mir-9243 microRNA precursor family: an 80-nucleotide RNA sequence from Cnephaeus nilssonii. Its family is annotated with RISC complex and miRNA-mediated post-transcriptional gene silencing in the Gene Ontology.
[Rfam]
RNA sequence: CCAUGCACGAAUUCCGUGCACCGGGCCUCUAGUAAUUCUAUAAAGACUAGAGGCCCGGUGCACGGAAUUCGUGCACGGGG
Numbered sequence: 001c002c003a004u005g006c007a008c009g010a011a012u013u014c015c016g017u018g019c020a021c022c023g024g025g026c027c028u029c030u031a032g033u034a035a036u037u038c039u040a041u042a043a044a045g046a047c048u049a050g051a052g053g054c055c056c057g058g059u060g061c062a063c064g065g066a067a068u069u070c071g072u073g074c075a076c077g078g079g080g
Base pairs, nucleotide, nucleotide: 001078002077004075005074006073007072008071009070010069011068013066014065015064017062018061019060020059021058022057023056024055025054026053027052028051029050030049031048032047033046